[Rfam]
RNA sequence: AUUCCUUCUAUCGUGUAUCCUCGAUUAAUGCAACCUCAGAUACUAUGUUUCA
Numbered sequence: 001a002u003u004c005c006u007u008c009u010a011u012c013g014u015g016u017a018u019c020c021u022c023g024a025u026u027a028a029u030g031c032a033a034c035c036u037c038a039g040a041u042a043c044u045a046u047g048u049u050u051c052a
Stems, first nucleotide, its partner, number of pairs: 010025004032049003
This 52-nucleotide sequence from Capsicum baccatum belongs to the Rfam family "Plastid-ycf3 group II-D1 intron". The family's consensus secondary structure was predicted with LocARNA. About the family: Plastid rpl16 is a non-coding RNA (ncRNA) recognised in plastids. It was recognised in and intronic region of a ribosome rpl16 gene.